[Rfam]
RNA sequence: GGGCGGUAGUUGUGGUGUGUCUGCCUGUCUACACUUGCUGUGCAGAACAUCAGGGAGCCUGUACAGCAGGCACAGACAGGCAGACAGACAGCAACCCACCA
Dot-bracket structure: .................((..(((((((((...(.((((((.(((.............))).)))))).)...)))))))))..))...............

This 101-nucleotide RNA from Astyanax mexicanus belongs to the Rfam family "mir-214 microRNA precursor family". Rfam links the family to the GO terms RISC complex and miRNA-mediated post-transcriptional gene silencing. The base pairs follow the family's consensus structure, which was predicted with RNAalifold. It scores 98 bits against the family's covariance model. The source organism's lineage runs through Eukaryota, Euteleostomi, Ostariophysi, Characiphysae and Astyanax.